[Rfam]
The family of this 52-nucleotide RNA sequence from Sulfitobacter guttiformis is "ffh sRNA". The source organism's lineage runs through Bacteria, Pseudomonadati, Alphaproteobacteria, Roseobacteraceae and Sulfitobacter. It scores 53 bits against the family's covariance model. The family's consensus secondary structure is taken from published work.
RNA sequence: GUUGUUCAGGAUCGCCUCCAGUCAGCGUAUUACGCCCACUGGAGUAUUUGUG
Numbered sequence: 001g002u003u004g005u006u007c008a009g010g011a012u013c014g015c016c017u018c019c020a021g022u023c024a025g026c027g028u029a030u031u032a033c034g035c036c037c038a039c040u041g042g043a044g045u046a047u048u049u050g051u052g
Base pairs, nucleotide, nucleotide: 016044017043018042019041020040021039022038025035026034027033028032